[Rfam]
RNA sequence: AAGGUCUCCUAUGCUACAGCCAUGGACUGGUUUAUUGCUGUGUGUUUCGCCUUC
Numbered sequence: 001a002a003g004g005u006c007u008c009c010u011a012u013g014c015u016a017c018a019g020c021c022a023u024g025g026a027c028u029g030g031u032u033u034a035u036u037g038c039u040g041u042g043u044g045u046u047u048c049g050c051c052u053u054c
Stems, first nucleotide, its partner, number of pairs: 002053002008049001011046001013045002015042006022035005

This 54-nucleotide RNA sequence from Hemibagrus wyckioides belongs to the Rfam family "Editing element of GABA-3 exon 9".
For this family Rfam cites "Editing modifies the GABA(A) receptor subunit alpha3" (Ohlson et al., RNA, 2007).
The organism belongs to Hemibagrus, within Eukaryota.